[Rfam]
RNA sequence: AAGAAAGGUUAGAAAAAAGCAUUGAUCGUUAAAUGUUAUGUGCGGGGGGAGGAAAGUCCGGACACCGACAAGUACCGCGCUCUGCGAUCCUUCGGGCGUAGCAGAGGCUCUUUAUCAGGAAUGAUACUGAGACAGACAGUGCAACAGAAAACAAACUGCCUCCAGCGCGGAGCGCUGGUUAAAUUUCAAAUAACAAGCUCCAAAACACAAACAAAUCACAAUGUUUAAAUAUUAAAACAUUGGUGCUUGUUUGAAAUUUGAGCUUUAAACAUUGGAAUUUCCAACGCUCCGCGUUGAAGGUGAUGGUGAAAAGGUGAGGUAAGAGCUCACCGCUCUUAGGGUGACCGAAGAGGCACGGUAAACCUCGCGGGGUGCAAGCUCAUGUAAGAUGGUAUACGCCACUUGUCGUGACGCCAUCGGGUGGAGUGCACCAGAUAAAUGAUUACCGAAUCUGCCAAUUGGCGGAGGAACAAAAUCCGGCUUAUAGACUUUCCUGUUGA
Numbered sequence: 001a002a003g004a005a006a007g008g009u010u011a012g013a014a015a016a017a018a019g020c021a022u023u024g025a026u027c028g029u030u031a032a033a034u035g036u037u038a039u040g041u042g043c044g045g046g047g048g049g050a051g052g053a054a055a056g057u058c059c060g061g062a063c064a065c066c067g068a069c070a071a072g073u074a075c076c077g078c079g080c081u082c083u084g085c086g087a088u089c090c091u092u093c094g095g096g097c098g099u100a101g102c103a104g105a106g107g108c109u110c111u112u113u114a115u116c117a118g119g120a121a122u123g124a125u126a127c128u129g130a131g132a133c134a135g136a137c138a139g140u141g142c143a144a145c146a147g148a149a150a151a152c153a154a155a156c157u158g159c160c161u162c163c164a165g166c167g168c169g170g171a172g173c174g175c176u177g178g179u180u181a182a183a184u185u186u187c188a189a190a191u192a193a194c195a196a197g198c199u200c201c202a203a204a205a206c207a208c209a210a211a212c213a214a215a216u217c218a219c220a221a222u223g224u225u226u227a228a229a230u231a232u233u234a235a236a237a238c239a240u241u242g243g244u245g246c247u248u249g250u251u252u253g254a255a256a257u258u259u260g261a262g263c264u265u266u267a268a269a270c271a272u273u274g275g276a277a278u279u280u281c282c283a284a285c286g287c288u289c290c291g292c293g294u295u296g297a298a299g300g301u302g303a304u305g306g307u308g309a310a311a312a313g314g315u316g317a318g319g320u321a322a323g324a325g326c327u328c329a330c331c332g333c334u335c336u337u338a339g340g341g342u343g344a345c346c347g348a349a350g351a352g353g354c355a356c357g358g359u360a361a362a363c364c365u366c367g368c369g370g371g372g373u374g375c376a377a378g379c380u381c382a383u384g385u386a387a388g389a390u391g392g393u394a395u396a397c398g399c400c401a402c403u404u405g406u407c408g409u410g411a412c413g414c415c416a417u418c419g420g421g422u423g424g425a426g427u428g429c430a431c432c433a434g435a436u437a438a439a440u441g442a443u444u445a446c447c448g449a450a451u452c453u454g455c456c457a458a459u460u461g462g463c464g465g466a467g468g469a470a471c472a473a474a475a476u477c478c479g480g481c482u483u484a485u486a487g488a489c490u491u492u493c494c495u496g497u498u499g500a
Stems, first nucleotide, its partner, number of pairs: 002495002005492006011485001012447001015444002020049001022047002027042002054483003058480005063374004071406001075370005080106005107133001108131003134365002139363002141359002156305001158301004163296012313331006332354001333352005339346002378427004388418006398412001400410003